Fluoride riboswitch aptamer (crcB RNA motif): a 76-nucleotide sequence from Nitrospira sp. KM1. For this family Rfam cites "Widespread genetic switches and toxicity resistance proteins for fluoride" (Baker et al., Science, 2012). The organism belongs to Nitrospira, within Bacteria.
[Rfam]
RNA sequence: CAUUCGACUGGUGAUGGAGUUCACCAAGAACCGUCCUUAUCUCUUUCGAUUCGGGACUGAUAACUCCUACCGGAUA
Numbered sequence: 001c002a003u004u005c006g007a008c009u010g011g012u013g014a015u016g017g018a019g020u021u022c023a024c025c026a027a028g029a030a031c032c033g034u035c036c037u038u039a040u041c042u043c044u045u046u047c048g049a050u051u052c053g054g055g056a057c058u059g060a061u062a063a064c065u066c067c068u069a070c071c072g073g074a075u076a
Stems, first nucleotide, its partner, number of pairs: 010025004016067006033057004